[Rfam]
RNA sequence: AGCAAGGGGAUGAUCUAAUUUGAUCUGAAUAUGAUGCUGAUAGUAAUUCAUCAUGUCCUUCAAAGCUCUCUGAUUGUU
Numbered sequence: 001a002g003c004a005a006g007g008g009g010a011u012g013a014u015c016u017a018a019u020u021u022g023a024u025c026u027g028a029a030u031a032u033g034a035u036g037c038u039g040a041u042a043g044u045a046a047u048u049c050a051u052c053a054u055g056u057c058c059u060u061c062a063a064a065g066c067u068c069u070c071u072g073a074u075u076g077u078u
Stems, first nucleotide, its partner, number of pairs: 001078005